[Rfam]
RNA: Conserved CCUCCUCCC motif stress-induced RNA 1
Organism: Rhodobacter ferrooxidans
RNA sequence: GUCUGUCGGCCCCACCUCCUCCCGGGGUUUGACGAUCGCGGCGGCACCGCUCCUCCUCCCUGGUGCCGCCGCACCCU
Numbered sequence: 001g002u003c004u005g006u007c008g009g010c011c012c013c014a015c016c017u018c019c020u021c022c023c024g025g026g027g028u029u030u031g032a033c034g035a036u037c038g039c040g041g042c043g044g045c046a047c048c049g050c051u052c053c054u055c056c057u058c059c060c061u062g063g064u065g066c067c068g069c070c071g072c073a074c075c076c077u
Base pairs, nucleotide, nucleotide: 007031008030009028010027011026012025013024039071040070041069042068043067044066045065046064047063048062